[Rfam]
RNA sequence: UCCUUCUUGUAUAAGCACUGUGCUAAAAUUACAGAAACUGGGGCACUGUCUUGGUUUUUGUAAUAAUGCUAGCAGAGUACACACAGGAAGGAAAUUGAAACUGCACCCGGUCUGGAAAGACUGGGGCGGACCUCUUUCUUAAUGUCCAAUGUCCUUCGUCUUAAGAUUUGGUGCGAUAAAU
Numbered sequence: 001u002c003c004u005u006c007u008u009g010u011a012u013a014a015g016c017a018c019u020g021u022g023c024u025a026a027a028a029u030u031a032c033a034g035a036a037a038c039u040g041g042g043g044c045a046c047u048g049u050c051u052u053g054g055u056u057u058u059u060g061u062a063a064u065a066a067u068g069c070u071a072g073c074a075g076a077g078u079a080c081a082c083a084c085a086g087g088a089a090g091g092a093a094a095u096u097g098a099a100a101c102u103g104c105a106c107c108c109g110g111u112c113u114g115g116a117a118a119g120a121c122u123g124g125g126g127c128g129g130a131c132c133u134c135u136u137u138c139u140u141a142a143u144g145u146c147c148a149a150u151g152u153c154c155u156u157c158g159u160c161u162u163a164a165g166a167u168u169u170g171g172u173g174c175g176a177u178a179a180a181u
Stems, first nucleotide, its partner, number of pairs: 018077002021074005028067004034058002037055008102175006109168002123152001125150001128147003
RNA: Small nucleolar RNA SNORA81
Organism: Echinops telfairi